[Rfam]
RNA: Nuclear RNase P
Organism: Naumovozyma castellii
RNA sequence: ACAGCGACGACUCCUACGACUUAGAGACCUGUUUACACAAGGAGGGUACCCUCCCUCAACCAACAGGUGGGAAAUUCGGUGAAACACAGUGGAAUCAUUCCUUCCAGCCUGGGCUCGCUUCCUUCGGGAAGCUAGGCUCAGGUCUUUCCGUGAGGACAGCCUAGCCGGGGACCGGUCUGCCUGGACGUUGUUAUCAGAAAUUCACACGGGUAACCGUGAUGGGAAAGCAACGAGUGUUUUAUUUGACGGGCUUCUGUUUACACAGUGGUCCAGUCUGUUGAGUGCAAUCGUAGGACAUGCCCUAGGGCUUGAACCCGAUACCGAUUACCGUCCUUGU
Numbered sequence: 001a002c003a004g005c006g007a008c009g010a011c012u013c014c015u016a017c018g019a020c021u022u023a024g025a026g027a028c029c030u031g032u033u034u035a036c037a038c039a040a041g042g043a044g045g046g047u048a049c050c051c052u053c054c055c056u057c058a059a060c061c062a063a064c065a066g067g068u069g070g071g072a073a074a075u076u077c078g079g080u081g082a083a084a085c086a087c088a089g090u091g092g093a094a095u096c097a098u099u100c101c102u103u104c105c106a107g108c109c110u111g112g113g114c115u116c117g118c119u120u121c122c123u124u125c126g127g128g129a130a131g132c133u134a135g136g137c138u139c140a141g142g143u144c145u146u147u148c149c150g151u152g153a154g155g156a157c158a159g160c161c162u163a164g165c166c167g168g169g170g171a172c173c174g175g176u177c178u179g180c181c182u183g184g185a186c187g188u189u190g191u192u193a194u195c196a197g198a199a200a201u202u203c204a205c206a207c208g209g210g211u212a213a214c215c216g217u218g219a220u221g222g223g224a225a226a227g228c229a230a231c232g233a234g235u236g237u238u239u240u241a242u243u244u245g246a247c248g249g250g251c252u253u254c255u256g257u258u259u260a261c262a263c264a265g266u267g268g269u270c271c272a273g274u275c276u277g278u279u280g281a282g283u284g285c286a287a288u289c290g291u292a293g294g295a296c297a298u299g300c301c302c303u304a305g306g307g308c309u310u311g312a313a314c315c316c317g318a319u320a321c322c323g324a325u326u327a328c329c330g331u332c333c334u335u336g337u
Stems, first nucleotide, its partner, number of pairs: 001337004007331003012295007027068005042053004077323005084237004145158001147156003164176005186232007205218003296311002299308003